Overview:
This 138-nucleotide RNA from Kryptolebias marmoratus belongs to the Rfam family "Small nucleolar RNA SNORA8".

[Rfam]
RNA sequence: AGCACUGUGUGGUAUCUGCAGCCCGCUGCACCAUCAGCUGGUUUGUUCAUAAGUCAGUGCUAAAGGAAGUCAGCAUCUGGCAUCGUUGGUCUCCAGGCGGUUCGUGCCUGGAGUCCUGGUGAUGUUGCUGAAACACGU
Dot-bracket structure: .((((((......((.(((((.(.((((......))))..).))))....).))))))))...((.(..((((.....(((((....................))))).......))))...).))............

NCBI's taxonomy places the organism under Eukaryota, Bilateria, Deuterostomia, Teleostomi, Kryptolebias.
From the family's description: ACA8 is a member of the H/ACA class of snoRNA that guide the sites of modification of uridines to pseudouridines.
Its family is annotated with RNA processing and nucleolus in the Gene Ontology.